[Rfam]
RNA: mir-205 microRNA precursor family
Organism: Takifugu rubripes
RNA sequence: GUGUUCUAUCCUUCAUUCCACCGGAGUCUGUAUGUGUAUUUAACCAGAUUUCAGUGGUGUGAAGUGUAAGAGACA
Numbered sequence: 001g002u003g004u005u006c007u008a009u010c011c012u013u014c015a016u017u018c019c020a021c022c023g024g025a026g027u028c029u030g031u032a033u034g035u036g037u038a039u040u041u042a043a044c045c046a047g048a049u050u051u052c053a054g055u056g057g058u059g060u061g062a063a064g065u066g067u068a069a070g071a072g073a074c075a
Stems, first nucleotide, its partner, number of pairs: 011064006019056003023052004028047003